RNA sequence: UGAGUCGGCCGGGCGGCCGCGGCGAGCAUGUCUCGUCGAGGAAAGUCCGGACUCCACAGAGCACGGUGGUGGCCAACAGCCACCCACGGCGACGUGCGGGACAGUGCCACAGAGAUCAGACCGCCAGCGGCUCUCGCUCCUCGGAGCGGGAGUGCGGGUAAGGGUGAAACGGUGAGGUAAGAGCUCACCAGCGGUGUCGGCGACGGCACCGGCUCGGUAAACCCCACCGGGAGCAAGACCAAGAGAGUCUCUUCGGAGGCUUGCGCUGACGGGCUGCUCGUCCGACGUCAGCGGGUAGGUCGCACCGAGGCGUCCAGCAAUGGGCGCCCCAGAUGGAUGGUCGCCCUCGACAGAAUCCGGCUUACAGGCCGGCUCAUUCG
Dot-bracket structure: ((((((((((((((((((.(((((((.....)))))))....[[[.[[[[[((((...[[[[.((((((((((.....)))))(((((....)))).)((...(((((............(((((.(((.......................))).)))..)).......((((((.......)))))).(((((((((....)))))))).)..)))..)))))))))))))...((((..................(((.((.....(((((.]]]])))))..)).))).....)))).......((((((((....))))))))..........)))))))..........]]]]]]]].).))))))))))....
A member of the RNA family "Bacterial RNase P class A" from Aeromicrobium sp. Root495, 380 nucleotides long.
Ribonuclease P (RNase P) is a ubiquitous endoribonuclease, found in archaea, bacteria and eukarya as well as chloroplasts and mitochondria. Its best characterised activity is the generation of mature 5'-ends of tRNAs by cleaving the 5'-leader elements of precursor-tRNAs. Cellular RNase Ps are ribonucleoproteins.
The family's RNA type in Rfam is ribozyme.
The family's consensus secondary structure is taken from published work.